RNA sequence: AAACAACACUCUAUGUAUGUAUUGGAUCUUUGGCAGUUUUGGCCCCCAAGGAUACUUUUGACAUACUCUUCGCUGACGUGGCACCCAUAUCCCUUAAGUGAGGUGCCACGUGUCGACCAUUGUGAGUGCCACAUCAGCGAAGACUAAUCAAAAGUGGCCUUGGGGGCCAAAACUGCCAAAAUCCAACACAUAGGGGGUUGUUU
Number, nucleotide and partner (000 for none) at each position: 001a203002a202003a000004c200005a199006a198007c197008a000009c000010u000011c000012u000013a000014u000015g000016u192017a191018u190019g189020u188021a000022u186023u185024g184025g183026a182027u181028c000029u180030u179031u178032g177033g176034c175035a174036g173037u172038u171039u170040u169041g168042g167043c166044c165045c164046c163047c162048a161049a160050g000051g000052a000053u000054a000055c000056u000057u000058u000059u000060g000061a000062c000063a000064u000065a000066c000067u000068c000069u000070u000071c000072g000073c000074u000075g000076a134077c000078g000079u131080g130081g129082c128083a127084c126085c000086c124087a123088u122089a121090u000091c000092c000093c000094u000095u000096a000097a000098g000099u000100g000101a000102g000103g000104u000105g000106c000107c000108a000109c000110g000111u000112g000113u000114c000115g000116a000117c000118c000119a000120u000121u089122g088123u087124g086125a000126g084127u083128g082129c081130c080131a079132c000133a000134u076135c000136a000137g000138c000139g000140a000141a000142g000143a000144c000145u000146a000147a000148u000149c000150a000151a000152a000153a000154g000155u000156g000157g000158c000159c000160u049161u048162g047163g046164g045165g044166g043167c042168c041169a040170a039171a038172a037173c036174u035175g034176c033177c032178a031179a030180a029181a027182u026183c025184c024185a023186a022187c000188a020189c019190a018191u017192a016193g000194g000195g000196g000197g007198u006199u005200g004201u000202u002203u001
Record summary
The family of this 203-nucleotide RNA sequence from Medicago truncatula is "MIR2619 microRNA precursor family". A search with the family's covariance model found it, with a score of 126 bits. NCBI's taxonomy places the organism under Eukaryota, Tracheophyta, rosids, Hologalegina, Medicago.